[Rfam]
RNA sequence: UUGAAGUUCCAUCUAUUAAUAUAUAAGGUUUUUCUGUUAACAUAUAAUAUUUCUUUAUGAAAGAAAAGACAAAACUACCUAAUAUCUUGUUCUAGCAAGAUAUUGGGUAUUUUG
Numbered sequence: 001u002u003g004a005a006g007u008u009c010c011a012u013c014u015a016u017u018a019a020u021a022u023a024u025a026a027g028g029u030u031u032u033u034c035u036g037u038u039a040a041c042a043u044a045u046a047a048u049a050u051u052u053c054u055u056u057a058u059g060a061a062a063g064a065a066a067a068g069a070c071a072a073a074a075c076u077a078c079c080u081a082a083u084a085u086c087u088u089g090u091u092c093u094a095g096c097a098a099g100a101u102a103u104u105g106g107g108u109a110u111u112u113u114g
Stems, first nucleotide, its partner, number of pairs: 008023001011020002070114005076109003080105003084101005
RNA: Plastid-psbA-1 3UTR RNA